Rfam assigns this 61-nucleotide RNA from Carlito syrichta to the family "mir-1285 microRNA precursor family". Pairs were carried over by alignment from the consensus structure, which was predicted with RNAalifold. Lineage of the source: Eukaryota > Deuterostomia > Tarsiiformes > Tarsiidae > Carlito. The match comes from Rfam's covariance-model search (59 bits). The family has 5 seed sequences and 264 matches in Rfam 15.1.

RNA sequence: CAGGUGUAUCACUCGAGCCCAGGGACUUGAGACCAGCCUGGGCAACAGAGUGAGACCUUGU
Numbered sequence: 001c002a003g004g005u006g007u008a009u010c011a012c013u014c015g016a017g018c019c020c021a022g023g024g025a026c027u028u029g030a031g032a033c034c035a036g037c038c039u040g041g042g043c044a045a046c047a048g049a050g051u052g053a054g055a056c057c058u059u060g061u
Base pairs, nucleotide, nucleotide: 007055009053010052011051012050013049014048017043018042019041020040021039022038023037027036028035029034